[Rfam]
RNA sequence: ACAGUACAAACUGAGCAGGCGAUGAACUUGUAAAAAAGUUCGUGGGGCUGGGCCUUAAUGGCAACAGGAUAAAUUAUAUACCUGUGGGACAGUU
Numbered sequence: 001a002c003a004g005u006a007c008a009a010a011c012u013g014a015g016c017a018g019g020c021g022a023u024g025a026a027c028u029u030g031u032a033a034a035a036a037a038g039u040u041c042g043u044g045g046g047g048c049u050g051g052g053c054c055u056u057a058a059u060g061g062c063a064a065c066a067g068g069a070u071a072a073a074u075u076a077u078a079u080a081c082c083u084g085u086g087g088g089a090c091a092g093u094u
Base pairs, nucleotide, nucleotide: 010093011092012091013090016088018049019048020047022043023042024041025040026039027038052062053061054060064085065084066083067082068081
Annotation: The record is a 94-nucleotide RNA from Clostridium tagluense, which matches "NiCo (Nickel/Cobalt) riboswitch aptamer" in Rfam. Its Rfam clan is "NiCo_riboswitches". The literature on the family includes a 2015 paper in Mol Cell by Furukawa et al., "Bacterial riboswitches cooperatively bind Ni(2+) or Co(2+) ions and control expression of heavy metal transporters". The source organism's lineage runs through Bacteria, Bacillota, Eubacteriales, Clostridiaceae and Clostridium. Rfam links the family to the GO terms metal ion homeostasis and cobalt ion binding. The family's consensus secondary structure is taken from published work. The match comes from Rfam's covariance-model search (74 bits).